[Rfam]
RNA: c-di-AMP riboswitch aptamer (ydaO/yuaA leader)
RNA sequence: GCGGCCGGACCGCCGAGUCCCCCAUGCGGGGAGCCGGGGACCCAAAUCCCCCCGGGGCGAAUCUGCGUUCACGCGACGCGGUAGGGCGACUCCUGGCCCGAGCCCGUCAGCUAACCCGGUAGGCGGACGAGGAGAGGAGAA
Numbered sequence: 001g002c003g004g005c006c007g008g009a010c011c012g013c014c015g016a017g018u019c020c021c022c023c024a025u026g027c028g029g030g031g032a033g034c035c036g037g038g039g040a041c042c043c044a045a046a047u048c049c050c051c052c053c054g055g056g057g058c059g060a061a062u063c064u065g066c067g068u069u070c071a072c073g074c075g076a077c078g079c080g081g082u083a084g085g086g087c088g089a090c091u092c093c094u095g096g097c098c099c100g101a102g103c104c105c106g107u108c109a110g111c112u113a114a115c116c117c118g119g120u121a122g123g124c125g126g127a128c129g130a131g132g133a134g135a136g137g138a139g140a141a
Base pairs, nucleotide, nucleotide: 011125012124013123014122018032019031020030033120034119035118036117037116038115043054055105056104057103063081064080065079066078084099085098086097087096